[Rfam]
Description: Clostridiales-1 RNA: a 155-nucleotide sequence from Anaerobium acetethylicum. The organism belongs to Anaerobium, within Bacteria.
RNA sequence: UGGUAUCCAGGGUCCAAAGGUCAUGUGUUUCAUGCUUGCAUGAAAAAACAUGACUUUGGGACCCGCAAAACAUGAGAAAGGAGCCCGAACAGGGCGGAUUUCUCAUGUUUCUAGGAUUGUGGGAGCACAAAGUGCGGAACAAUCCGUUGGUAUCC
Numbered sequence: 001u002g003g004u005a006u007c008c009a010g011g012g013u014c015c016a017a018a019g020g021u022c023a024u025g026u027g028u029u030u031c032a033u034g035c036u037u038g039c040a041u042g043a044a045a046a047a048a049c050a051u052g053a054c055u056u057u058g059g060g061a062c063c064c065g066c067a068a069a070a071c072a073u074g075a076g077a078a079a080g081g082a083g084c085c086c087g088a089a090c091a092g093g094g095c096g097g098a099u100u101u102c103u104c105a106u107g108u109u110u111c112u113a114g115g116a117u118u119g120u121g122g123g124a125g126c127a128c129a130a131a132g133u134g135c136g137g138a139a140c141a142a143u144c145c146g147u148u149g150g151u152a153u154c155c
Stems, first nucleotide, its partner, number of pairs: 002154006011063004017057010028046002030043005067112001068110006076102004083095004114145007125135004
By type it is a small RNA.